[Rfam]
RNA: Glutamine riboswitch aptamer (glnA leader)
RNA sequence: AUCGUUCAACCUUUUUUAAAGGUCGGAAGUAAGCACUAGCUGAAGGAACGCGCA
Numbered sequence: 001a002u003c004g005u006u007c008a009a010c011c012u013u014u015u016u017u018a019a020a021g022g023u024c025g026g027a028a029g030u031a032a033g034c035a036c037u038a039g040c041u042g043a044a045g046g047a048a049c050g051c052g053c054a
Stems, first nucleotide, its partner, number of pairs: 003050005009023005026051001032041003